A member of the RNA family "glmS glucosamine-6-phosphate activated ribozyme aptamer" from Candidatus Hydrogenisulfobacillus filiaventi, 165 nucleotides long.
It scores 48 bits against the family's covariance model.
The base pairs follow the family's consensus structure, which is taken from published work.
The family's RNA type in Rfam is riboswitch.
[Rfam]
RNA sequence: GUAAGCCCGCAAGCGCCGGAACCCUGCCCGGCCCGUCCGGGGAGGGUUGACGAGGCGGGGGAUCUCGAAGGAUUCGGCGGGUGACCCCCGGCCUACCCGACGGCCGUGAAACCGCGGACAAAGGCCAGGCCGUAAGGCGGGCACAAAGCCGCGGGGGUCGGGCCC
Numbered sequence: 001g002u003a004a005g006c007c008c009g010c011a012a013g014c015g016c017c018g019g020a021a022c023c024c025u026g027c028c029c030g031g032c033c034c035g036u037c038c039g040g041g042g043a044g045g046g047u048u049g050a051c052g053a054g055g056c057g058g059g060g061g062a063u064c065u066c067g068a069a070g071g072a073u074u075c076g077g078c079g080g081g082u083g084a085c086c087c088c089c090g091g092c093c094u095a096c097c098c099g100a101c102g103g104c105c106g107u108g109a110a111a112c113c114g115c116g117g118a119c120a121a122a123g124g125c126c127a128g129g130c131c132g133u134a135a136g137g138c139g140g141g142c143a144c145a146a147a148g149c150c151g152c153g154g155g156g157g158u159c160g161g162g163c164c165c
Stems, first nucleotide, its partner, number of pairs: 020048006027041001029039001057088004065077004089106005112154006125141002129138003